[Rfam]
RNA sequence: GGCGAAUCAGCUCUGUACAAUUGUAUCCGGUGAAGCAUUGUACGGAGC
Dot-bracket structure: ..........(((((.(((...................))).))))).